[Rfam]
RNA: chrB-a RNA
RNA sequence: GACAUGGGGAUGCUGCGAUCGCCCCGUGAGGCUCAGGCCCAAGUAUCGCAUCCUGUUGAUAUGACACAAGGAUGCUCGGCUAUG
Numbered sequence: 001g002a003c004a005u006g007g008g009g010a011u012g013c014u015g016c017g018a019u020c021g022c023c024c025c026g027u028g029a030g031g032c033u034c035a036g037g038c039c040c041a042a043g044u045a046u047c048g049c050a051u052c053c054u055g056u057u058g059a060u061a062u063g064a065c066a067c068a069a070g071g072a073u074g075c076u077c078g079g080c081u082a083u084g
Base pairs, nucleotide, nucleotide: 005026006025007024008023009022048075049074050073051072052071053070